[Rfam]
RNA sequence: AAGAGCCCUGAGUCAAUAAAGACUGAGAAGAUUGACUCAAGACCAAA
Numbered sequence: 001a002a003g004a005g006c007c008c009u010g011a012g013u014c015a016a017u018a019a020a021g022a023c024u025g026a027g028a029a030g031a032u033u034g035a036c037u038c039a040a041g042a043c044c045a046a047a
Base pairs, nucleotide, nucleotide: 007041010038011037012036013035014034015033016032017031

Background:
Shown here is a 47-nucleotide RNA, a member of the family "Plastid-rpl16 group II-D1 intron". The family's consensus secondary structure was predicted with LocARNA. Plastid-rpl16 is a non-coding RNA (ncRNA) recognised in plastids. It is one of the family's seed sequences.